Shown here is a 121-nucleotide RNA sequence from Odoribacter sp. CAG:788, a member of the family "FMN riboswitch aptamer (RFN element)".

RNA sequence: AUAUUUCUUCGGGGCAGGGUGUGAUUCCCUACCGGCGGUGAUAGUCCGCGACUCCCUUUUGAGGGACUGAAUCGGUGAAAUUCCGGUACCGACGGUAAAGUCCGGAUGAUAGAAGGAAUAG
Numbered sequence: 001a002u003a004u005u006u007c008u009u010c011g012g013g014g015c016a017g018g019g020u021g022u023g024a025u026u027c028c029c030u031a032c033c034g035g036c037g038g039u040g041a042u043a044g045u046c047c048g049c050g051a052c053u054c055c056c057u058u059u060u061g062a063g064g065g066a067c068u069g070a071a072u073c074g075g076u077g078a079a080a081u082u083c084c085g086g087u088a089c090c091g092a093c094g095g096u097a098a099a100g101u102c103c104g105g106a107u108g109a110u111a112g113a114a115g116g117a118a119u120a121g
Base pairs, nucleotide, nucleotide: 003119004118005117006116007115008114009113010112017029018028019027031101032100033091034090035049036048037047038046044089045088053066054065071087072086073085074084075083093104094103095102
Dot-bracket structure: ..((((((((......(((.......))).[[((((((.....[[))))...((..........))....(((((.......)))))]])).(((....]]))).......))))))))..
Pairs were carried over by alignment from the consensus structure, which is taken from published work.